[Rfam]
RNA: UnaL2 LINE 3' element
RNA sequence: UAUGUGUAAUUUGUAAGUCGCUCUGGAUAAGAGUGUCUGCUAAAUGACGAAAA
Number, nucleotide and partner (000 for none) at each position: 001u000002a000003u000004g000005u000006g000007u000008a000009a000010u000011u000012u042013g040014u039015a038016a000017g000018u000019c035020g034021c033022u032023c031024u030025g000026g000027a000028u000029a000030a024031g023032a022033g021034u020035g019036u000037c000038u015039g014040c013041u000042a012043a000044a000045u000046g000047a000048c000049g000050a000051a000052a000053a000